This 72-nucleotide sequence from Phoenix dactylifera belongs to the Rfam family "Trypanosomatid snoRNA TB11Cs4H1". Lineage of the source: Eukaryota > Embryophyta > Mesangiospermae > Arecales > Phoenix. By type it is an H/ACA-box small nucleolar RNA.

[Rfam]
RNA sequence: ACAUCUCUCUCUCUCUCUCUCUCUCUCUCUCAAUCUCUCUGUGAGAGAGAGAGAGAGAGAGAGAGAGAGAGA
Number, nucleotide and partner (000 for none) at each position: 001a000002c000003a000004u068005c067006u066007c065008u064009c063010u000011c000012u000013c000014u000015c000016u000017c055018u054019c053020u000021c000022u000023c047024u046025c045026u044027c043028u000029c000030u000031c000032a000033a000034u000035c000036u000037c000038u000039c000040u000041g000042u000043g027044a026045g025046a024047g023048a000049g000050a000051g000052a000053g019054a018055g017056a000057g000058a000059g000060a000061g000062a000063g009064a008065g007066a006067g005068a004069g000070a000071g000072a000